c-di-GMP-I-GGC riboswitch aptamer: a 75-nucleotide RNA sequence from Cryobacterium tepidiphilum. Taxonomically the source falls in Cryobacterium (Bacteria, Bacillati, Actinomycetes, Microbacteriaceae).
RNA sequence: AUUGUAAAUAGCAAACCCGGCGCAAGCCGGGGACGCAAAGCCACGGGACCCUCUGGGUUAGCCGGGUUGCCGAAC
Numbered sequence: 001a002u003u004g005u006a007a008a009u010a011g012c013a014a015a016c017c018c019g020g021c022g023c024a025a026g027c028c029g030g031g032g033a034c035g036c037a038a039a040g041c042c043a044c045g046g047g048a049c050c051c052u053c054u055g056g057g058u059u060a061g062c063c064g065g066g067u068u069g070c071c072g073a074a075c
Stems, first nucleotide, its partner, number of pairs: 003072002011036002016031006034061001039068004044064003047059003
The family has 40 seed sequences and 1,298 matches in Rfam 15.1. The base pairs follow the family's consensus structure, which is taken from published work.